SAM-I/IV (S-adenosyl methionine) riboswitch aptamer: a 95-nucleotide sequence. The family's consensus secondary structure is taken from published work. Rfam's curators put it in the seed alignment. Its family is annotated with S-adenosylmethionine metabolic process and regulation of gene expression in the Gene Ontology.
RNA sequence: GUUGAAUAUCACGAGAAGGAUUUAUAUCCUCUCCAACCUGCCAACUCCGGCAAGGUGGAAAAAUGAUAUGGCGUUCAGCAAACAUAGGAGGAAAA
Dot-bracket structure: .....(((((....(.(((((....))))))(((..((((((..[[[[))).))).))).....))))).((.....)).......]]]].....